[Rfam]
A member of the RNA family "Nuclear RNase P" from Carassius auratus, 303 nucleotides long. Its Rfam clan is "RNaseP clan". From the family's description: Ribonuclease P (RNase P) is a ubiquitous endoribonuclease, found in archaea, bacteria and eukarya as well as chloroplasts and mitochondria. The family's RNA type in Rfam is ribozyme.

RNA sequence: GCGAAAGGAAGUUCACUGUAGAGGUUACUUACUGAGUGUAAAUCACUCAUCCUAUCACCUCGGGGAAGGUCUGAGACAAGAGCCAAUCGCUGUCUUCACAGGACAUCAUCUGAACAGAUGAGCGAGCGCACAGGAAAGAUGGGUCAGAACGCGGAGCUAACGCACGAGACGUUGGAAAUGCAGAAUAGCGAGCCAGCUGACGCGAUCCCCGUUGACUUGGAAACGCUCGCGGCUGGCGCAAUGAGUUCAAUGUGUGAACUGGCACGAGAUGCUAGAACCCAAUUCAGACUACUCUCCUAUCGC
Numbered sequence: 001g002c003g004a005a006a007g008g009a010a011g012u013u014c015a016c017u018g019u020a021g022a023g024g025u026u027a028c029u030u031a032c033u034g035a036g037u038g039u040a041a042a043u044c045a046c047u048c049a050u051c052c053u054a055u056c057a058c059c060u061c062g063g064g065g066a067a068g069g070u071c072u073g074a075g076a077c078a079a080g081a082g083c084c085a086a087u088c089g090c091u092g093u094c095u096u097c098a099c100a101g102g103a104c105a106u107c108a109u110c111u112g113a114a115c116a117g118a119u120g121a122g123c124g125a126g127c128g129c130a131c132a133g134g135a136a137a138g139a140u141g142g143g144u145c146a147g148a149a150c151g152c153g154g155a156g157c158u159a160a161c162g163c164a165c166g167a168g169a170c171g172u173u174g175g176a177a178a179u180g181c182a183g184a185a186u187a188g189c190g191a192g193c194c195a196g197c198u199g200a201c202g203c204g205a206u207c208c209c210c211g212u213u214g215a216c217u218u219g220g221a222a223a224c225g226c227u228c229g230c231g232g233c234u235g236g237c238g239c240a241a242u243g244a245g246u247u248c249a250a251u252g253u254g255u256g257a258a259c260u261g262g263c264a265c266g267a268g269a270u271g272c273u274a275g276a277a278c279c280c281a282a283u284u285c286a287g288a289c290u291a292c293u294c295u296c297c298u299a300u301c302g303c
Stems, first nucleotide, its partner, number of pairs: 001303004007297003012258005021061004034048005071287005081234004091105005106121006122230007143216005259275006